RNA sequence: UAGCAUCCUUAAUAAACCCCCUGGUUGUCAUAUGUGGUCUCUGGGACAAGAAAGGGUGCGACAUCAAUCUUAGGAUCCACGGCCGAGAGCAGUGUGUCAGUAGCUCUUGGUUAUUUCACCCCUAAGACAGAA
Number, nucleotide and partner (000 for none) at each position: 001u000002a000003g059004c058005a057006u056007c000008c000009u051010u050011a000012a000013u000014a000015a000016a000017c000018c000019c000020c045021c044022u043023g042024g041025u000026u000027g038028u037029c036030a035031u000032a000033u000034g000035u030036g029037g028038u027039c000040u000041c024042u023043g022044g021045g020046a000047c000048a000049a000050g010051a009052a000053a000054g000055g000056g006057u005058g004059c003060g000061a000062c000063a000064u131065c130066a000067a000068u127069c126070u125071u124072a123073g122074g121075a000076u000077c000078c000079a000080c000081g112082g111083c110084c109085g108086a107087g106088a000089g104090c103091a000092g000093u000094g000095u100096g000097u000098c000099a000100g095101u000102a000103g090104c089105u000106c087107u086108u085109g084110g083111u082112u081113a000114u000115u000116u000117c000118a000119c000120c000121c074122c073123u072124a071125a070126g069127a068128c000129a000130g065131a064132a000
RNA: Small nucleolar RNA SNORA14
Organism: Sparus aurata